[Rfam]
RNA: c-di-AMP riboswitch aptamer (ydaO/yuaA leader)
RNA sequence: UGCUAUAAGUCGCUUAAUUUCUGCCUAAUAUGGCGGAGAGCGGGGGAACCACAGUAAGGCAGCGUGCUUGAUUCGGUGUGAGAGCCGAAUGAUACACGAUGCAUGGGGUGAAUUCUGAUCCGAAGAUUCAUAUGAAAUGUCAUAUGGAAUCAUGAGGAACAGAUAGGACGACUCUCACCGUCCGAAUCCGACAGCUAACCUCGUAAGCUGUACAGAGUUACACU
Numbered sequence: 001u002g003c004u005a006u007a008a009g010u011c012g013c014u015u016a017a018u019u020u021c022u023g024c025c026u027a028a029u030a031u032g033g034c035g036g037a038g039a040g041c042g043g044g045g046g047a048a049c050c051a052c053a054g055u056a057a058g059g060c061a062g063c064g065u066g067c068u069u070g071a072u073u074c075g076g077u078g079u080g081a082g083a084g085c086c087g088a089a090u091g092a093u094a095c096a097c098g099a100u101g102c103a104u105g106g107g108g109u110g111a112a113u114u115c116u117g118a119u120c121c122g123a124a125g126a127u128u129c130a131u132a133u134g135a136a137a138u139g140u141c142a143u144a145u146g147g148a149a150u151c152a153u154g155a156g157g158a159a160c161a162g163a164u165a166g167g168a169c170g171a172c173u174c175u176c177a178c179c180g181u182c183c184g185a186a187u188c189c190g191a192c193a194g195c196u197a198a199c200c201u202c203g204u205a206a207g208c209u210g211u212a213c214a215g216a217g218u219u220a221c222a223c224u
Stems, first nucleotide, its partner, number of pairs: 012208003018039008040204006050105002106189003114163004166183004